Shown here is an 81-nucleotide RNA sequence from Aphidius gifuensis, a member of the family "mir-184 microRNA precursor family". The match comes from Rfam's covariance-model search (63 bits). Its family is annotated with gene silencing by miRNA and RISC complex in the Gene Ontology.

RNA sequence: GUGCCGACAGCCCCUUAUCAUUCCCUUGUCCGGUGUUUAGUUUUUCAACUGGACGGAGAACUGAUAAGGGCCGGAAGGUUA
Numbered sequence: 001g002u003g004c005c006g007a008c009a010g011c012c013c014c015u016u017a018u019c020a021u022u023c024c025c026u027u028g029u030c031c032g033g034u035g036u037u038u039a040g041u042u043u044u045u046c047a048a049c050u051g052g053a054c055g056g057a058g059a060a061c062u063g064a065u066a067a068g069g070g071c072c073g074g075a076a077g078g079u080u081a
Stems, first nucleotide, its partner, number of pairs: 012070009021060003025056002029052002
NCBI's taxonomy places the organism under Eukaryota, Ecdysozoa, Endopterygota, Aphidiinae, Aphidius. The base pairs follow the family's consensus structure, which was predicted with PFOLD.